[Rfam]
RNA: Bacterial large signal recognition particle RNA
Organism: Limnochorda pilosa
RNA sequence: CCGUGCUAGACGGGGAGGUAGCGGUGCCCUGUACCCGCAAUCCGCUAUAGCGGGGUCGAAUUCCCGUCCGAGGCUGGGCCUUGUGGGGACCGGGCCCGGCCAGUGGUGCUGACGGCCGGGUCUUGCGCAACAGGAUCCCACGAACCCCGUCAGGUCCGGAAGGAAGCAGCGGUAAGUGGGCCCGCCUGUGUGCCGCAAGGGCGCCUGGCCCGAGCCGACUACCGGGAUUCCGCCUGGAAGGCCCCGGUCGACGACGGGUGCACGG
Numbered sequence: 001c002c003g004u005g006c007u008a009g010a011c012g013g014g015g016a017g018g019u020a021g022c023g024g025u026g027c028c029c030u031g032u033a034c035c036c037g038c039a040a041u042c043c044g045c046u047a048u049a050g051c052g053g054g055g056u057c058g059a060a061u062u063c064c065c066g067u068c069c070g071a072g073g074c075u076g077g078g079c080c081u082u083g084u085g086g087g088g089a090c091c092g093g094g095c096c097c098g099g100c101c102a103g104u105g106g107u108g109c110u111g112a113c114g115g116c117c118g119g120g121u122c123u124u125g126c127g128c129a130a131c132a133g134g135a136u137c138c139c140a141c142g143a144a145c146c147c148c149g150u151c152a153g154g155u156c157c158g159g160a161a162g163g164a165a166g167c168a169g170c171g172g173u174a175a176g177u178g179g180g181c182c183c184g185c186c187u188g189u190g191u192g193c194c195g196c197a198a199g200g201g202c203g204c205c206u207g208g209c210c211c212g213a214g215c216c217g218a219c220u221a222c223c224g225g226g227a228u229u230c231c232g233c234c235u236g237g238a239a240g241g242c243c244c245c246g247g248u249c250g251a252c253g254a255c256g257g258g259u260g261c262a263c264g265g
Base pairs, nucleotide, nucleotide: 001265002264003263004262005261006260009057010056011055012030013029014028015027017025019023034054035053036052037051038050063258064257065256066255067254068253072249073248074247075246076245078242079241080240081239082238084236085235086234087233091232092231095226096225097224098223099222103219104218105216106215107214114210115209116208117207118206119205120204121203122199123198124197125196126195127194128190129189131188132187133186134185137180138179139178140177141176147172148171149170150169155164156163157162